About this RNA
Shown here is a 276-nucleotide RNA from Macaca mulatta, a member of the family "Mason-Pfizer monkey virus packaging signal". Rfam describes the family as follows. This family represents a group of sequences that are related to the Mason-Pfizer monkey virus (MPMV) packaging signal. The packaging signal is located in the 5' UTR and is required for specific RNA encapsidation. Its family is annotated with viral genome packaging in the Gene Ontology. It is annotated as a cis-regulatory element. The family's consensus secondary structure was predicted with PFOLD. It is one of the family's seed sequences. NCBI's taxonomy places the organism under Eukaryota, Teleostomi, Primates, Simiiformes, Macaca.

RNA sequence: UGGCGCCUCAACGUGGAGCCUGGAAACGAGGGAUUCCGUGAGGAAGAGGACGCGAAAGAACGGUCGACCUUCAAGGUGAAACUAAACUCCUCCGAUCACCGCGGGAACCUGCCGCGUCAGAAUUGAAGGUAAGUGACGUGUCCGAAAUGGGACAAGAAUUAAGUCAACAUCAAAUCUAUGUAGGACAAUUAAAAGAGGCUUUAAAGAUACGAGGAGUAAAGGUUAAAUGUAAUGAUUUGUUUAAAUUUUUUGAUUUUGUAAAAGACACUUGCCCUU
Numbered sequence: 001u002g003g004c005g006c007c008u009c010a011a012c013g014u015g016g017a018g019c020c021u022g023g024a025a026a027c028g029a030g031g032g033a034u035u036c037c038g039u040g041a042g043g044a045a046g047a048g049g050a051c052g053c054g055a056a057a058g059a060a061c062g063g064u065c066g067a068c069c070u071u072c073a074a075g076g077u078g079a080a081a082c083u084a085a086a087c088u089c090c091u092c093c094g095a096u097c098a099c100c101g102c103g104g105g106a107a108c109c110u111g112c113c114g115c116g117u118c119a120g121a122a123u124u125g126a127a128g129g130u131a132a133g134u135g136a137c138g139u140g141u142c143c144g145a146a147a148u149g150g151g152a153c154a155a156g157a158a159u160u161a162a163g164u165c166a167a168c169a170u171c172a173a174a175u176c177u178a179u180g181u182a183g184g185a186c187a188a189u190u191a192a193a194a195g196a197g198g199c200u201u202u203a204a205a206g207a208u209a210c211g212a213g214g215a216g217u218a219a220a221g222g223u224u225a226a227a228u229g230u231a232a233u234g235a236u237u238u239g240u241u242u243a244a245a246u247u248u249u250u251u252g253a254u255u256u257u258g259u260a261a262a263a264g265a266c267a268c269u270u271g272c273c274c275u276u
Base pairs, nucleotide, nucleotide: 006032007031009030013027014026037049039047089129090128091126092125096121097120100116101115102114103113104112138153139152141151142150143149144148160203161202162201163199164198165197210252211251212250213249214248215247216246217245220238221237222236223235224234225233261276262275264273266271